RNA sequence: GAAUGCAGAGUUGAUUAUUUGUUUCCCUAUUGGCUUGUUUGCAUGAAUUGUGCCAUAUUGUAUUAGCGCUAAAUGAGUAUUU
Numbered sequence: 001g002a003a004u005g006c007a008g009a010g011u012u013g014a015u016u017a018u019u020u021g022u023u024u025c026c027c028u029a030u031u032g033g034c035u036u037g038u039u040u041g042c043a044u045g046a047a048u049u050g051u052g053c054c055a056u057a058u059u060g061u062a063u064u065a066g067c068g069c070u071a072a073a074u075g076a077g078u079a080u081u082u
Stems, first nucleotide, its partner, number of pairs: 002081004037054001040052004

This 82-nucleotide RNA from Lupinus albus belongs to the Rfam family "Small nucleolar RNA Z102/R77". Lineage of the source: Eukaryota > Streptophyta > Euphyllophyta > Magnoliopsida > Lupinus. Pairs were carried over by alignment from the consensus structure, which was predicted with PFOLD. The family is grouped with related families in Rfam's "SNORD44 clan". A search with the family's covariance model found it, with a score of 46 bits. Its family is annotated with RNA processing and nucleolus in the Gene Ontology.